[Rfam]
RNA sequence: AUACUCCCUCCGUUUUAUAAUAUAAAAACGUUUUUCAAGCUUUGUUAGUUUGAAAAACGUUUUUAUAUUAUGAGACGGAGGGAGUAA
Numbered sequence: 001a002u003a004c005u006c007c008c009u010c011c012g013u014u015u016u017a018u019a020a021u022a023u024a025a026a027a028a029c030g031u032u033u034u035u036c037a038a039g040c041u042u043u044g045u046u047a048g049u050u051u052g053a054a055a056a057a058c059g060u061u062u063u064u065a066u067a068u069u070a071u072g073a074g075a076c077g078g079a080g081g082g083a084g085u086a087a
Base pairs, nucleotide, nucleotide: 003085004084005083007081008080009079010078011077013075014074015073016072017071019069020068021067022066023065024064025063026062027061028060029059030058031057032056033055034054035053036052037051038050039049040048041047
RNA: MIR1120/MIR1122 microRNA precursor family